[Rfam]
RNA sequence: GAUUUCAGAUGAAAAAGUCAUGAACAUGAAAGUUGUACAACUCAUCAAGAUGUACAACUUUUAUUUUGGUCAUUUCUUCAUCUGAGAAAGUGAUAGUAACUUUGUUCACAAAUUUUACAUCUCUCAUAUAUGUUUUCAUAAACUAUAAGAGAGAUGUAGAUUUUGUGAACAAUGUUAUUCCCACUUUCUCUGAUGAAGAAAUGACUAAAAUAAAAGUCGUACAUCUUGAUCAGUUGUACAACUUUGUUGUUGAUGACUUUUUCAUCCGAAACC
Dot-bracket structure: .............((((((((.((.(...(((((((((((((.((((((((((.(.(((((((((((.(((((((.(((((..(((((((((..(((((..(((((((((((.((.((((((........((.(((...))).))......)))))).)).)))))))))))..)))))..)))))))))..))))).))))))).))))))))))).).)))))))))).)))))))))))))...).)).)))))))).............
Numbered sequence: 001g002a003u004u005u006c007a008g009a010u011g012a013a014a015a016a017g018u019c020a021u022g023a024a025c026a027u028g029a030a031a032g033u034u035g036u037a038c039a040a041c042u043c044a045u046c047a048a049g050a051u052g053u054a055c056a057a058c059u060u061u062u063a064u065u066u067u068g069g070u071c072a073u074u075u076c077u078u079c080a081u082c083u084g085a086g087a088a089a090g091u092g093a094u095a096g097u098a099a100c101u102u103u104g105u106u107c108a109c110a111a112a113u114u115u116u117a118c119a120u121c122u123c124u125c126a127u128a129u130a131u132g133u134u135u136u137c138a139u140a141a142a143c144u145a146u147a148a149g150a151g152a153g154a155u156g157u158a159g160a161u162u163u164u165g166u167g168a169a170c171a172a173u174g175u176u177a178u179u180c181c182c183a184c185u186u187u188c189u190c191u192g193a194u195g196a197a198g199a200a201a202u203g204a205c206u207a208a209a210a211u212a213a214a215a216g217u218c219g220u221a222c223a224u225c226u227u228g229a230u231c232a233g234u235u236g237u238a239c240a241a242c243u244u245u246g247u248u249g250u251u252g253a254u255g256a257c258u259u260u261u262u263c264a265u266c267c268g269a270a271a272c273c
Stems, first nucleotide, its partner, number of pairs: 014260008023251002026248001030244013044230010055219001057217011069205007077197005084190009095179005102172011114160002117157006131145002134142003